Notes:
This 137-nucleotide RNA sequence from Kutzneria sp. 744 belongs to the Rfam family "Group II catalytic intron D1-D4-4". About the family: Group II introns are found in rRNA, tRNA and mRNA of organelles in fungi, plants and protists, and also in mRNA in bacteria. The match comes from Rfam's covariance-model search (102 bits). The base pairs follow the family's consensus structure.

RNA sequence: UUGCCGGUGCAAGUCCGGUCCGGGUAGCUGUCAGGAGGCCCGGUAGCAGGCUGGCGGCUUGGCCGGGAAACGGGCCAGGUCGAAGCCCAGCGUCGAAAGCCCUUCAAGGGGAAGCAACCGAGCGGUCCGUAACAUCA
Numbered sequence: 001u002u003g004c005c006g007g008u009g010c011a012a013g014u015c016c017g018g019u020c021c022g023g024g025u026a027g028c029u030g031u032c033a034g035g036a037g038g039c040c041c042g043g044u045a046g047c048a049g050g051c052u053g054g055c056g057g058c059u060u061g062g063c064c065g066g067g068a069a070a071c072g073g074g075c076c077a078g079g080u081c082g083a084a085g086c087c088c089a090g091c092g093u094c095g096a097a098a099g100c101c102c103u104u105c106a107a108g109g110g111g112a113a114g115c116a117a118c119c120g121a122g123c124g125g126u127c128c129g130u131a132a133c134a135u136c137a
Stems, first nucleotide, its partner, number of pairs: 020043005050091005055082006064073001066071001101111003114130002
Dot-bracket structure: ...................(((((..............)))))......(((((((((((...(.(....).)...))))))....))))).........(((.....)))..((.............)).......